[Rfam]
RNA sequence: GUGCGUCUUCAGGGCGGGGCGAAAUUCCCCACCGGCGGUAAGUCGGCCAGCAUCGUAUGCGGCGCCGGCAAGCCCGCGAGCGCCUGCUCGAACGGCCCGUCUUUCACGGGCCGGCACGCGCAGGGUCAGCAGAUCUGGUGCGAUGCCAGAGCCGACGGUCAAAGUCCGGAUGGAAGAAGAUGCGC
Numbered sequence: 001g002u003g004c005g006u007c008u009u010c011a012g013g014g015c016g017g018g019g020c021g022a023a024a025u026u027c028c029c030c031a032c033c034g035g036c037g038g039u040a041a042g043u044c045g046g047c048c049a050g051c052a053u054c055g056u057a058u059g060c061g062g063c064g065c066c067g068g069c070a071a072g073c074c075c076g077c078g079a080g081c082g083c084c085u086g087c088u089c090g091a092a093c094g095g096c097c098c099g100u101c102u103u104u105c106a107c108g109g110g111c112c113g114g115c116a117c118g119c120g121c122a123g124g125g126u127c128a129g130c131a132g133a134u135c136u137g138g139u140g141c142g143a144u145g146c147c148a149g150a151g152c153c154g155a156c157g158g159u160c161a162a163a164g165u166c167c168g169g170a171u172g173g174a175a176g177a178a179g180a181u182g183c184g185c
Base pairs, nucleotide, nucleotide: 003183004182005181006180007179008178009177010176017029018028019027031165032164033154034153035077036076037075038074072152073151080130081129134150135149136148137147138146156168157167158166